[Rfam]
RNA: 7SK RNA
RNA sequence: GGAUGUGAGGGCGAUUUGGCUGCAACAUCUGCCACCCCAUCGAUUGCCUUGGUUGCUUCGGCUGAUCUGGCUGGCCAGGCAGGUGUCCCCUUCCUGCCUCACCGCUCCAUGUGGGCCCCUCCCGAAGCCGCUCGCUCCGUUGAAGGGGACGACCUUCCCGAUAAAGAAGGACUGUUCUUCAGUCAAGGGUAUGCGAGUAGCUGGGCUCCCCUGCUAGACCCUCCAAACAAACUCUCGAGGUUCACUUGCAGGAGAACGUAGGGUAGUCAAGCUUCCAAGACCGCAGACACUUCCAAAUGAGGCACUGUACGUGGCAGUCUGCCUUUCUCA
Numbered sequence: 001g002g003a004u005g006u007g008a009g010g011g012c013g014a015u016u017u018g019g020c021u022g023c024a025a026c027a028u029c030u031g032c033c034a035c036c037c038c039a040u041c042g043a044u045u046g047c048c049u050u051g052g053u054u055g056c057u058u059c060g061g062c063u064g065a066u067c068u069g070g071c072u073g074g075c076c077a078g079g080c081a082g083g084u085g086u087c088c089c090c091u092u093c094c095u096g097c098c099u100c101a102c103c104g105c106u107c108c109a110u111g112u113g114g115g116c117c118c119c120u121c122c123c124g125a126a127g128c129c130g131c132u133c134g135c136u137c138c139g140u141u142g143a144a145g146g147g148g149a150c151g152a153c154c155u156u157c158c159c160g161a162u163a164a165a166g167a168a169g170g171a172c173u174g175u176u177c178u179u180c181a182g183u184c185a186a187g188g189g190u191a192u193g194c195g196a197g198u199a200g201c202u203g204g205g206c207u208c209c210c211c212u213g214c215u216a217g218a219c220c221c222u223c224c225a226a227a228c229a230a231a232c233u234c235u236c237g238a239g240g241u242u243c244a245c246u247u248g249c250a251g252g253a254g255a256a257c258g259u260a261g262g263g264u265a266g267u268c269a270a271g272c273u274u275c276c277a278a279g280a281c282c283g284c285a286g287a288c289a290c291u292u293c294c295a296a297a298u299g300a301g302g303c304a305c306u307g308u309a310c311g312u313g314g315c316a317g318u319c320u321g322c323c324u325u326u327c328u329c330a
Stems, first nucleotide, its partner, number of pairs: 001108003005102006013093002018090002025086009035074002037070003042067004046062003116170002119166002122139001124137002127135002140161003147157003200272003206266002209263006221254004228248003297328001299325005304318005